[Rfam]
RNA sequence: UUGACAGAAGAGAGUGAGCACACAGAGGCACUUGGUAUAGUAUAUAUACUAUUGCUUUUGCGUGCUCACUUCUCUUUCUGUCAA
Numbered sequence: 001u002u003g004a005c006a007g008a009a010g011a012g013a014g015u016g017a018g019c020a021c022a023c024a025g026a027g028g029c030a031c032u033u034g035g036u037a038u039a040g041u042a043u044a045u046a047u048a049c050u051a052u053u054g055c056u057u058u059u060g061c062g063u064g065c066u067c068a069c070u071u072c073u074c075u076u077u078c079u080g081u082c083a084a
Stems, first nucleotide, its partner, number of pairs: 001084009010074003013070009023060003
RNA: mir-156 microRNA precursor family